[Rfam]
RNA sequence: GUGGUGGUAAGAUAUGUUUGAUAUUCUUGGUUGUUGAUUAUUUUCGACUAAGGAUCGAACAUAUUAUUACCACCCU
Number, nucleotide and partner (000 for none) at each position: 001g000002u000003g000004g000005u072006g071007g070008u069009a068010a000011g065012a064013u063014a062015u061016g060017u059018u058019u057020g056021a055022u054023a000024u052025u051026c000027u000028u000029g049030g048031u047032u046033g045034u000035u000036g000037a000038u000039u000040a000041u000042u000043u000044u000045c033046g032047a031048c030049u029050a000051a025052g024053g000054a022055u021056c020057g019058a018059a017060c016061a015062u014063a013064u012065u011066a000067u000068u009069a008070c007071c006072a005073c000074c000075c000076u000
Shown here is a 76-nucleotide RNA sequence from Hyalella azteca, a member of the family "mir-190 microRNA precursor family". Lineage of the source: Eukaryota > Ecdysozoa > Altocrustacea > Talitrida > Hyalella. The family's consensus secondary structure was predicted with RNAalifold. Its Rfam clan is "mir-50 clan". A reference for the family is Bar et al. (2008), "MicroRNA discovery and profiling in human embryonic stem cells by deep sequencing of small RNA libraries", Stem Cells.